[Rfam]
RNA sequence: AGAAGAACAGGCGAUGAUGUUCGCCGCAAAUGAUUGUGUAGCAAUCUGAUGACGUCUACUGAAAC
Numbered sequence: 001a002g003a004a005g006a007a008c009a010g011g012c013g014a015u016g017a018u019g020u021u022c023g024c025c026g027c028a029a030a031u032g033a034u035u036g037u038g039u040a041g042c043a044a045u046c047u048g049a050u051g052a053c054g055u056c057u058a059c060u061g062a063a064a065c
Base pairs, nucleotide, nucleotide: 010025011024012023013022016056017055018054019053020052021051032046033045034044035043
RNA: Fluoride riboswitch aptamer (crcB RNA motif)